The family of this 67-nucleotide RNA sequence is "S15-Flavobacteria ribosomal protein leader".
It is annotated as a cis-regulatory leader.
On this family, see Eckert and Weinberg, BMC Microbiol 2020: "Discovery of 20 novel ribosomal leader candidates in bacteria and archaea".
Clan: Ribosomal Protein S15 Leader clan.
RNA sequence: UAUCUUUGCCGCUUGAAUACGAAAAGCGUAUCAAUACAUAAAAAUCAUUUAAAUAAAUAUUGGAAUG
Numbered sequence: 001u002a003u004c005u006u007u008g009c010c011g012c013u014u015g016a017a018u019a020c021g022a023a024a025a026g027c028g029u030a031u032c033a034a035u036a037c038a039u040a041a042a043a044a045u046c047a048u049u050u051a052a053a054u055a056a057a058u059a060u061u062g063g064a065a066u067g
Stems, first nucleotide, its partner, number of pairs: 014033003018030002